[Rfam]
RNA: Z30 small nucleolar RNA
Organism: Dissostichus mawsoni
RNA sequence: GUGCACUGAUGAUUUUGGAUUUUACUGACCUGGCAUUGCUAGCCUCCGGGUCAGCUCUGGCCAGGAAGUGAUCAUAUGUAAUCUUCUCUCUGAGCAG
Numbered sequence: 001g002u003g004c005a006c007u008g009a010u011g012a013u014u015u016u017g018g019a020u021u022u023u024a025c026u027g028a029c030c031u032g033g034c035a036u037u038g039c040u041a042g043c044c045u046c047c048g049g050g051u052c053a054g055c056u057c058u059g060g061c062c063a064g065g066a067a068g069u070g071a072u073c074a075u076a077u078g079u080a081a082u083c084u085u086c087u088c089u090c091u092g093a094g095c096a097g
Stems, first nucleotide, its partner, number of pairs: 003095002038055003